RNA sequence: UAGCCACGAAUAAGUUAUUCUGUGGCCAAUUUGAGUUACGAUAAUUACUAUACUAAUUUACAAGAUUAUGGUAACUCUCUUACAAGUGAUUUACUAUAGCAUUAUGGUAAGUAUUAUCUUAAAUAGUAACCCAUGUACCGUAAAUAUGUGUUGACAUUAUCAUAAAUUAGUACAAACAUUAUCGUAAAUCAAGGUGGCCAUAAAAUAAAUUAUUCUGUGGCCA
Dot-bracket structure: (.(((((((((((.(((((.((((((((.(((...((((((((((...(.((((((((((...(((.(((..(......((((..(((..(((((((.(...((.......))....)....))))))....)..))).)))).......)...))).))).)))))))))).)...))))))))))...))).)))))))).))))).)))))).))))).)
RNA: MIR6217 microRNA precursor family
Organism: Miscanthus lutarioriparius